RNA: mir-172 microRNA precursor family
Organism: Acer saccharum
RNA sequence: GUAUUCGCUGAUGCAGCACCAUCAAGAUUCACAAAAAACUUUAAUAAGGAGCUUCGACGUUGCUGUAUAUGGGGAUAUACGUAUGGUGGUACUCGAUCGAAUUAAUGGUUCCUUUAAAAGAAAAAAAAAAUGGGAAUCUUGAUGAUGCUGCAUCGGCUAAUAU
Numbered sequence: 001g002u003a004u005u006c007g008c009u010g011a012u013g014c015a016g017c018a019c020c021a022u023c024a025a026g027a028u029u030c031a032c033a034a035a036a037a038a039c040u041u042u043a044a045u046a047a048g049g050a051g052c053u054u055c056g057a058c059g060u061u062g063c064u065g066u067a068u069a070u071g072g073g074g075a076u077a078u079a080c081g082u083a084u085g086g087u088g089g090u091a092c093u094c095g096a097u098c099g100a101a102u103u104a105a106u107g108g109u110u111c112c113u114u115u116a117a118a119a120g121a122a123a124a125a126a127a128a129a130a131u132g133g134g135a136a137u138c139u140u141g142a143u144g145a146u147g148c149u150g151c152a153u154c155g156g157c158u159a160a161u162a163u
Stems, first nucleotide, its partner, number of pairs: 010154009020144011032132002
Dot-bracket structure: .........(((((((((.(((((((((((.((.................................................................................................)).))))))))))).))))))))).........